[Rfam]
RNA sequence: UAGUCCUUUAAUUACGUCCAGAGAGGCUAAUAAGGAACGGAUUCAUGAUUCUGAACAGAUCAUGUACAACCCCUUUAUGCUUACUCGGCAAAAGGGGUUUUUAUU
Numbered sequence: 001u002a003g004u005c006c007u008u009u010a011a012u013u014a015c016g017u018c019c020a021g022a023g024a025g026g027c028u029a030a031u032a033a034g035g036a037a038c039g040g041a042u043u044c045a046u047g048a049u050u051c052u053g054a055a056c057a058g059a060u061c062a063u064g065u066a067c068a069a070c071c072c073c074u075u076u077a078u079g080c081u082u083a084c085u086c087g088g089c090a091a092a093a094g095g096g097g098u099u100u101u102u103a104u105u
Base pairs, nucleotide, nucleotide: 004036005035006034007033008032013030016027017026018025044064045063046062047061048060049059051058052057068099069098070097071096072095073094074093075092076091078090079089080088081087
This 105-nucleotide RNA sequence from Lentibacillus sp. JNUCC-1 belongs to the Rfam family "PyrR binding site". The family's consensus secondary structure is taken from published work. By type it is a cis-regulatory element. The organism belongs to Lentibacillus, within Bacteria. This family represents the PyrR binding site and terminator structure. This RNA structure is found upstream of a variety of genes involved in pyrimidine biosynthesis and transport.